RNA sequence: CGGCUGUAACGGUCACAAAGCGAGAAGACCUCUACAUCCCAGAACUUCUCACCCAUCUCAUCCCUUCCGGGGUACUACCCGCGGUGCCCAGUUCGAACAUGGCGGUGGCUCCCCACUCGUGCAGGUAACUCACGAUCGCUGGACUCAGGGGCCUUGAGCAAUGAAGAAUACUUCUCGAGGGAGGCUUCACUCUGCAGAGAGAUCUUCACCGUGGUGUGGCGGUAUUGGAUUACACUUGCGCGGUGGUUUGGGUGUGGUGUUUGGGUUGAGUGUCGACUUAAAUUUUUUUU
Number, nucleotide and partner (000 for none) at each position: 001c000002g014003g013004c012005u000006g000007u000008a000009a000010c000011g000012g004013u003014c002015a000016c000017a287018a286019a285020g284021c000022g000023a000024g000025a000026a000027g000028a000029c000030c000031u272032c000033u270034a000035c268036a267037u000038c265039c264040c000041a000042g262043a261044a260045c259046u000047u257048c256049u000050c254051a253052c252053c251054c250055a249056u000057c000058u000059c000060a000061u074062c000063c072064c071065u070066u000067c000068c000069g000070g065071g064072g063073u000074a061075c000076u000077a244078c243079c242080c240081g000082c000083g236084g235085u234086g233087c000088c228089c227090a226091g225092u224093u222094c221095g220096a000097a217098c216099a215100u214101g000102g212103c211104g210105g209106u000107g145108g144109c000110u143111c142112c141113c000114c138115a000116c000117u135118c134119g133120u132121g131122c000123a130124g129125g000126u000127a000128a000129c124130u123131c121132a120133c119134g118135a117136u000137c000138g114139c000140u000141g112142g111143a110144c108145u107146c000147a000148g000149g000150g000151g000152c000153c000154u158155u000156g000157a000158g154159c000160a000161a000162u208163g207164a206165a205166g204167a203168a000169u000170a000171c000172u201173u200174c199175u198176c197177g000178a000179g000180g000181g192182a191183g190184g000185c000186u000187u000188c000189a000190c183191u182192c181193u000194g000195c000196a000197g176198a175199g174200a173201g172202a000203u167204c166205u165206u164207c163208a162209c105210c104211g103212u102213g000214g100215u099216g098217u097218g000219g000220c095221g094222g093223u000224a092225u091226u090227g089228g088229a000230u000231u000232a000233c086234a085235c084236u083237u000238g000239c000240g080241c000242g079243g078244u077245g000246g000247u000248u000249u055250g054251g053252g052253u051254g050255u000256g048257g047258u000259g045260u044261u043262u042263g000264g039265g038266u000267u036268g035269a000270g033271u000272g031273u000274c000275g000276a000277c000278u000279u000280a000281a000282a000283u000284u020285u019286u018287u017288u000289u000290u000
Description:
Rfam assigns this 290-nucleotide sequence from Mollisia scopiformis to the family "Fungal signal recognition particle RNA". Pairs were carried over by alignment from the consensus structure, which is taken from published work. The source organism's lineage runs through Eukaryota, Fungi, Pezizomycotina, leotiomyceta and Mollisia. By type it is a non-coding RNA gene. Rfam 15.1 lists 748 matches to the family in 741 species. It scores 136 bits against the family's covariance model. Rfam links the family to the GO terms SRP-dependent cotranslational protein targeting to membrane, signal sequence recognition, signal recognition particle, endoplasmic reticulum targeting and signal recognition particle, plasma membrane targeting. On this family, see Wild et al., Curr Opin Struct Biol 2002: "Towards the structure of the mammalian signal recognition particle".